[Rfam]
RNA sequence: UGCUAAGGCUAUAGUUGCAGUACCGUCCUGCCUAAGUGAAGCAGUUUCCGAAGAAAAUCGAGUGGUAUUUUCGAUUUUUGCUUUGUAUGUAGCACCUCGGGGGUCGCAACCCCGUUACAACAAUAGCGAUAGUGCUACGCUUCAUGGCAACAAAGUAAAUGCAGGGGCUUCGGGUAAACAAAACGGGCAACAGCCAUUCGUGAAACCACCGCGAGUGGCUUUUG
Numbered sequence: 001u002g003c004u005a006a007g008g009c010u011a012u013a014g015u016u017g018c019a020g021u022a023c024c025g026u027c028c029u030g031c032c033u034a035a036g037u038g039a040a041g042c043a044g045u046u047u048c049c050g051a052a053g054a055a056a057a058u059c060g061a062g063u064g065g066u067a068u069u070u071u072c073g074a075u076u077u078u079u080g081c082u083u084u085g086u087a088u089g090u091a092g093c094a095c096c097u098c099g100g101g102g103g104u105c106g107c108a109a110c111c112c113c114g115u116u117a118c119a120a121c122a123a124u125a126g127c128g129a130u131a132g133u134g135c136u137a138c139g140c141u142u143c144a145u146g147g148c149a150a151c152a153a154a155g156u157a158a159a160u161g162c163a164g165g166g167g168c169u170u171c172g173g174g175u176a177a178a179c180a181a182a183a184c185g186g187g188c189a190a191c192a193g194c195c196a197u198u199c200g201u202g203a204a205a206c207c208a209c210c211g212c213g214a215g216u217g218g219c220u221u222u223u224g
Stems, first nucleotide, its partner, number of pairs: 001043004007037001017031004023186004044168001046167004056076006062209005068203001077159010192220011
A member of the RNA family "FuFi-1 RNA", 224 nucleotides long. It is annotated as a small RNA.